[Rfam]
RNA sequence: UUGUUUCAAAGUUCAUCGUCUGAUCAUCGAUGCCCAGAGCUAAGAAACAAGAAAAAGAAAAUAUAAAGUCAACCCACUGGGACGGUUGGCCAGUUAAGAAGUGAGGAUUCAUGCUGCGUAGCAGUCAAUACAUUGGACACAUUUUUAGAAUAUUU
Numbered sequence: 001u002u003g004u005u006u007c008a009a010a011g012u013u014c015a016u017c018g019u020c021u022g023a024u025c026a027u028c029g030a031u032g033c034c035c036a037g038a039g040c041u042a043a044g045a046a047a048c049a050a051g052a053a054a055a056a057g058a059a060a061a062u063a064u065a066a067a068g069u070c071a072a073c074c075c076a077c078u079g080g081g082a083c084g085g086u087u088g089g090c091c092a093g094u095u096a097a098g099a100a101g102u103g104a105g106g107a108u109u110c111a112u113g114c115u116g117c118g119u120a121g122c123a124g125u126c127a128a129u130a131c132a133u134u135g136g137a138c139a140c141a142u143u144u145u146u147a148g149a150a151u152a153u154u155u
Base pairs, nucleotide, nucleotide: 001050002049003048004047005046007044010041011040012039013038014032015031016030017029018028033081034080035079036078037077067151069149070148072146089125090124091121101112102111103110104109
Shown here is a 155-nucleotide RNA from Criibacterium bergeronii, a member of the family "DUF2800 RNA". The family's RNA type in Rfam is cis-regulatory element. It scores 65 bits against the family's covariance model.